[Rfam]
RNA sequence: GCGGAGGGCCGGAUGGCCGCACCACCGCAAGGUGGCGAGGAAAGUCCGGACUCCACAAGGCGACGGUGCCGGGUAACGCCCGGCCGGGGCAACCCGAGGGAAAGCGCCACAGAAAACAGACCGCCCUGCCAUUCGUUUCGGCGAACCACGCGGGGUAAGGGUGAAACGGUGGGGUAAGAGCCCACCGCGGGACGGGCAACCGGACCGGCACGGCAAGCCCCACCGGGAGCAAUGCCGAAUAGGGACCGCAUUUUGGGCCGGCCUUGGCCCCGCGGUCCGGGUUGGCAGCACGAGCCUGUUGGUAACAGCAGGCCCAGAUGAAUGGUCAUCCCCGGGGCAACCCGGGACAGAAUCCGGCUUACAGGCCCUCCGCGCAU
Numbered sequence: 001g002c003g004g005a006g007g008g009c010c011g012g013a014u015g016g017c018c019g020c021a022c023c024a025c026c027g028c029a030a031g032g033u034g035g036c037g038a039g040g041a042a043a044g045u046c047c048g049g050a051c052u053c054c055a056c057a058a059g060g061c062g063a064c065g066g067u068g069c070c071g072g073g074u075a076a077c078g079c080c081c082g083g084c085c086g087g088g089g090c091a092a093c094c095c096g097a098g099g100g101a102a103a104g105c106g107c108c109a110c111a112g113a114a115a116a117c118a119g120a121c122c123g124c125c126c127u128g129c130c131a132u133u134c135g136u137u138u139c140g141g142c143g144a145a146c147c148a149c150g151c152g153g154g155g156u157a158a159g160g161g162u163g164a165a166a167c168g169g170u171g172g173g174g175u176a177a178g179a180g181c182c183c184a185c186c187g188c189g190g191g192a193c194g195g196g197c198a199a200c201c202g203g204a205c206c207g208g209c210a211c212g213g214c215a216a217g218c219c220c221c222a223c224c225g226g227g228a229g230c231a232a233u234g235c236c237g238a239a240u241a242g243g244g245a246c247c248g249c250a251u252u253u254u255g256g257g258c259c260g261g262c263c264u265u266g267g268c269c270c271c272g273c274g275g276u277c278c279g280g281g282u283u284g285g286c287a288g289c290a291c292g293a294g295c296c297u298g299u300u301g302g303u304a305a306c307a308g309c310a311g312g313c314c315c316a317g318a319u320g321a322a323u324g325g326u327c328a329u330c331c332c333c334g335g336g337g338c339a340a341c342c343c344g345g346g347a348c349a350g351a352a353u354c355c356g357g358c359u360u361a362c363a364g365g366c367c368c369u370c371c372g373c374g375c376a377u
Stems, first nucleotide, its partner, number of pairs: 001373010011362001012330007020037001022035005042360003046357005051229004059264002064225005069083005084098001085096004099220002104218002106214003121160002123156007168186006187209001188207003193202003233287004243278006255270005294313008